Shown here is a 370-nucleotide RNA sequence from Sinanaerobacter chloroacetimidivorans, a member of the family "transfer-messenger RNA". The match comes from Rfam's covariance-model search (182 bits). A reference for the family is Felden et al. (1997), "Probing the structure of the Escherichia coli 10Sa RNA (tmRNA)", RNA. Rfam links the family to the GO term RNA catabolic process. The source organism's lineage runs through Bacteria, Bacillati, Bacillota, Anaerovoracaceae and Sinanaerobacter. Bacterial tmRNA, also known as 10Sa RNA or SsrA, is named for its dual tRNA and mRNA-like properties. The family's consensus secondary structure is taken from published work.
[Rfam]
RNA sequence: GGGGGUGUAAAGGUUUCGACGGGGGUGUAGAAGCCGGAUAAGCGAGCCGUAGUUGCCUAGUCUACGUUAAAAGGGGCACGUUUAAAUAUAAACGCUAAAAAUAAUAACAAUUACGCUUUAGCUGCAUAAGCAGCAGCCGCUAAGCGGCGCGUCGUCAGCUCCCAUUCACCUGUAGGUGGGAAACCUGGCGUCGAUUAUACAGGAAAACUCCGUGUGAGCUCCUAGUAGCACGGGGGACCAAUAGGAUAGCCGAUGAUAAAGCCUGCUGACGGGCGUUAACAGAGGCGAAGCAAAAAAACAUCAGCUGCGCUCGGAGAAAGUCUUGUGGAAAUGCUUUCGGACGCGAGUUCGACUCUCGCCACCUUCACCA
Numbered sequence: 001g002g003g004g005g006u007g008u009a010a011a012g013g014u015u016u017c018g019a020c021g022g023g024g025g026u027g028u029a030g031a032a033g034c035c036g037g038a039u040a041a042g043c044g045a046g047c048c049g050u051a052g053u054u055g056c057c058u059a060g061u062c063u064a065c066g067u068u069a070a071a072a073g074g075g076g077c078a079c080g081u082u083u084a085a086a087u088a089u090a091a092a093c094g095c096u097a098a099a100a101a102u103a104a105u106a107a108c109a110a111u112u113a114c115g116c117u118u119u120a121g122c123u124g125c126a127u128a129a130g131c132a133g134c135a136g137c138c139g140c141u142a143a144g145c146g147g148c149g150c151g152u153c154g155u156c157a158g159c160u161c162c163c164a165u166u167c168a169c170c171u172g173u174a175g176g177u178g179g180g181a182a183a184c185c186u187g188g189c190g191u192c193g194a195u196u197a198u199a200c201a202g203g204a205a206a207a208c209u210c211c212g213u214g215u216g217a218g219c220u221c222c223u224a225g226u227a228g229c230a231c232g233g234g235g236g237a238c239c240a241a242u243a244g245g246a247u248a249g250c251c252g253a254u255g256a257u258a259a260a261g262c263c264u265g266c267u268g269a270c271g272g273g274c275g276u277u278a279a280c281a282g283a284g285g286c287g288a289a290g291c292a293a294a295a296a297a298a299c300a301u302c303a304g305c306u307g308c309g310c311u312c313g314g315a316g317a318a319a320g321u322c323u324u325g326u327g328g329a330a331a332u333g334c335u336u337u338c339g340g341a342c343g344c345g346a347g348u349u350c351g352a353c354u355c356u357c358g359c360c361a362c363c364u365u366c367a368c369c370a
Stems, first nucleotide, its partner, number of pairs: 001366007020339009033326002036323004043313005048066005054078005119136001121134005153190006160181006170203002208235008222245002225242001249286003254281002257278002261274003265305004343359005